[Rfam]
RNA: U1 spliceosomal RNA
Organism: Rhinopithecus roxellana
RNA sequence: AUACUUACCAGGCAGGUGAGAUAUUGUGAUUAUGAAGGUGGUUUACCCAGAUUGGGGCUUAUCCAUUGCACUCUGGAUGUUCUGACCCCUGUGACGUCCCCUAAUGUGGAAAACCCAAUGGCAUAAUUUGUGGUAGUGAGGAACUUCGUUUGCACUCUCCCUCA
Numbered sequence: 001a002u003a004c005u006u007a008c009c010a011g012g013c014a015g016g017u018g019a020g021a022u023a024u025u026g027u028g029a030u031u032a033u034g035a036a037g038g039u040g041g042u043u044u045a046c047c048c049a050g051a052u053u054g055g056g057g058c059u060u061a062u063c064c065a066u067u068g069c070a071c072u073c074u075g076g077a078u079g080u081u082c083u084g085a086c087c088c089c090u091g092u093g094a095c096g097u098c099c100c101c102u103a104a105u106g107u108g109g110a111a112a113a114c115c116c117a118a119u120g121g122c123a124u125a126a127u128u129u130g131u132g133g134u135a136g137u138g139a140g141g142a143a144c145u146u147c148g149u150u151u152g153c154a155c156u157c158u159c160c161c162u163c164a
Base pairs, nucleotide, nucleotide: 012122013121015119016048018046020044021043023042024041025040026039027038049090050089054086056083057082060079061078062077063076064075092117093116097111099109100108138163139162140161141160143158148153